Notes
The family of this 97-nucleotide RNA sequence from Morella rubra is "Small nucleolar RNA snoR31/Z110/Z27". The organism belongs to Morella, within Eukaryota.
[Rfam]
RNA sequence: AUCAUCAUGUGAUGAAAUGUGGAAAAAUCUUAGGACACCUUCCUACACAGCUUUAAUUGGCUGUGGAUGAGAAUAACGAUUCCAUUCUGAUGAUGAU
Numbered sequence: 001a002u003c004a005u006c007a008u009g010u011g012a013u014g015a016a017a018u019g020u021g022g023a024a025a026a027a028u029c030u031u032a033g034g035a036c037a038c039c040u041u042c043c044u045a046c047a048c049a050g051c052u053u054u055a056a057u058u059g060g061c062u063g064u065g066g067a068u069g070a071g072a073a074u075a076a077c078g079a080u081u082c083c084a085u086u087c088u089g090a091u092g093a094u095g096a097u
Stems, first nucleotide, its partner, number of pairs: 001097007043050002

For this family Rfam cites "Identification of 66 box C/D snoRNAs in Arabidopsis thaliana: extensive gene duplications generated multiple isoforms predicting new ribosomal RNA 2'-O-methylation sites" (Barneche et al., J Mol Biol, 2001).
The family's RNA type in Rfam is C/D-box small nucleolar RNA.
About the family: This family contains several related snoRNAs including R31, Z27 and Z110.
The match comes from Rfam's covariance-model search (56 bits).